[Rfam]
RNA sequence: CCUGCUGUUUCGUCAGUAGUAGCCUAUGGGCAAAUGCAGUCUUUAAGGGAUUGUGUUAAGCUGCCCAGACAAGGUAGCCCUGUCGCAAGACGCAGAAAGAACCGUGAGGGGAUUUCAAUAACUGCCAGUGUUAGGCGGUUGGGGAG
Numbered sequence: 001c002c003u004g005c006u007g008u009u010u011c012g013u014c015a016g017u018a019g020u021a022g023c024c025u026a027u028g029g030g031c032a033a034a035u036g037c038a039g040u041c042u043u044u045a046a047g048g049g050a051u052u053g054u055g056u057u058a059a060g061c062u063g064c065c066c067a068g069a070c071a072a073g074g075u076a077g078c079c080c081u082g083u084c085g086c087a088a089g090a091c092g093c094a095g096a097a098a099g100a101a102c103c104g105u106g107a108g109g110g111g112a113u114u115u116c117a118a119u120a121a122c123u124g125c126c127a128g129u130g131u132u133a134g135g136c137g138g139u140u141g142g143g144g145a146g
Base pairs, nucleotide, nucleotide: 002019003018004017005016006015007014028066029065030064031063032062033057034056035055036054037053038052039051040050041049042048043047081092082091083090084089095116096115097114098113102109103108121139122138123137124136125135126134
RNA: Group II catalytic intron D1-D4-7